About this RNA
A member of the RNA family "c-di-AMP riboswitch aptamer (ydaO/yuaA leader)" from Polycladomyces abyssicola, 150 nucleotides long. It scores 87 bits against the family's covariance model. The source organism's lineage runs through Bacteria, Bacillati, Bacillota, Bacilli and Polycladomyces.
[Rfam]
RNA sequence: GUAUCAGACAGGCCGAAUCUCCGUGUCGGUGUUCGGCGCGGGGUACGGGGGAUGCAAUCAUUGUUGGGGUGAAGCCGCCAUUUCGGCGGCCGGGAUUAACUCCUUUCCCGAACCCGUCAGCUAACCUCGGAGGCUUUGAAAGGAGGCAUA
Numbered sequence: 001g002u003a004u005c006a007g008a009c010a011g012g013c014c015g016a017a018u019c020u021c022c023g024u025g026u027c028g029g030u031g032u033u034c035g036g037c038g039c040g041g042g043g044u045a046c047g048g049g050g051g052a053u054g055c056a057a058u059c060a061u062u063g064u065u066g067g068g069g070u071g072a073a074g075c076c077g078c079c080a081u082u083u084c085g086g087c088g089g090c091c092g093g094g095a096u097u098a099a100c101u102c103c104u105u106u107c108c109c110g111a112a113c114c115c116g117u118c119a120g121c122u123a124a125c126c127u128c129g130g131a132g133g134c135u136u137u138g139a140a141a142g143g144a145g146g147c148a149u150a
Base pairs, nucleotide, nucleotide: 011135012134013133014132019043020042021041022040023039024038025037026036027035028034029033046129047128048127049126050125055066056065067115068114069113075089076088077087078086092109093108094107095106